[Rfam]
RNA sequence: ACGCCUUAAACUUAUGAGUAAGGAAAAUAACAAUUUGGGGUGAUACCGGAAUCCUCACUGCUAAUGUGAGACGAAAUUUUGAGCGGGUAAAGGAUGCCACUGAGGUGACCUGCCUACUUUGCAGAAUGCCUGGGAGCCUCGAUCUGCCCU
Numbered sequence: 001a002c003g004c005c006u007u008a009a010a011c012u013u014a015u016g017a018g019u020a021a022g023g024a025a026a027a028u029a030a031c032a033a034u035u036u037g038g039g040g041u042g043a044u045a046c047c048g049g050a051a052u053c054c055u056c057a058c059u060g061c062u063a064a065u066g067u068g069a070g071a072c073g074a075a076a077u078u079u080u081g082a083g084c085g086g087g088u089a090a091a092g093g094a095u096g097c098c099a100c101u102g103a104g105g106u107g108a109c110c111u112g113c114c115u116a117c118u119u120u121g122c123a124g125a126a127u128g129c130c131u132g133g134g135a136g137c138c139u140c141g142a143u144c145u146g147c148c149c150u
Stems, first nucleotide, its partner, number of pairs: 004023005033052004038047002054070005085149004091145003095141002100134002103131005110124004